The record is a 122-nucleotide RNA sequence from Aquabacterium lacunae, which matches "Burkholderia RNA 11" in Rfam. Pairs were carried over by alignment from the consensus structure, which was predicted with RNAfold. It scores 91 bits against the family's covariance model. Lineage of the source: Bacteria > Pseudomonadota > Betaproteobacteria > Burkholderiales > Aquabacterium.
[Rfam]
RNA sequence: GCAACCUGAAGCUGGCCUGGCAGUACCCCAGUGUGUUCCGCUCCCUGCUGGGCAUCUCCUGGAUGUGGUUCUUUGGCGCGGUGUUCCUGGCCCAGUUCCCGUCGUUCGCACGCGAUGUGCUG
Numbered sequence: 001g002c003a004a005c006c007u008g009a010a011g012c013u014g015g016c017c018u019g020g021c022a023g024u025a026c027c028c029c030a031g032u033g034u035g036u037u038c039c040g041c042u043c044c045c046u047g048c049u050g051g052g053c054a055u056c057u058c059c060u061g062g063a064u065g066u067g068g069u070u071c072u073u074u075g076g077c078g079c080g081g082u083g084u085u086c087c088u089g090g091c092c093c094a095g096u097u098c099c100c101g102u103c104g105u106u107c108g109c110a111c112g113c114g115a116u117g118u119g120c121u122g
Stems, first nucleotide, its partner, number of pairs: 010049003014045002019042003023036004051121005057115002060112002063105003067099002071095002075091001077089002080087002
Co-purified with Hfq, expression confirmed by Northern blot. Predicted target marZ. Overlaps coding sequence.